[Rfam]
Nucleotides: 081
Base pairs, nucleotide, nucleotide: 013081014080015079016078019075020074022072023071024070026068028066029065030064031063032062033061034060035059036058038056039055
Number, partner (000 for none) and nucleotide at each position: 001000g002000a003000g004000c005000g006000a007000g008000g009000g010000g011000c012000a013081u014080c015079u016078c017000g018000a019075g020074g021000a022072c023071u024070g025000u026068c027000u028066a029065a030064c031063c032062u033061g034060a035059g036058a037000a038056u039055g040000g041000u042000a043000a044000a045000u046000c047000a048000u049000g050000a051000g052000g053000g054000u055039c056038a057000a058036u059035c060034u061033c062032a063031g064030g065029u066028u067000c068026g069000u070024c071023a072022g073000c074020c075019c076000a077000u078016g079015a080014g081013a